The family of this 156-nucleotide sequence from Thermostaphylospora chromogena is "c-di-AMP riboswitch aptamer (ydaO/yuaA leader)". Taxonomically the source falls in Thermostaphylospora (Bacteria, Bacillati, Actinomycetota, Streptosporangiales).
RNA sequence: GAAGGCGAUCUGCCGAAUCCGUGCAGCCAGGAGCACGGAGCCGGGGACCCAAAGGGCCCGCGCCAGGGCCAGGGGUGAAUCGGCGCACAUGCGCCGUAGGGCGACUUCCACGCCCGAAUCCGUCAGCUAACCCGGUAGGCGUUCAUGGAAGAGCUG
Dot-bracket structure: ..........((((...(((((((........)))))))((((((....(.....................)(((.....((((........))))..((((.........))))...))).........)))))).))))...............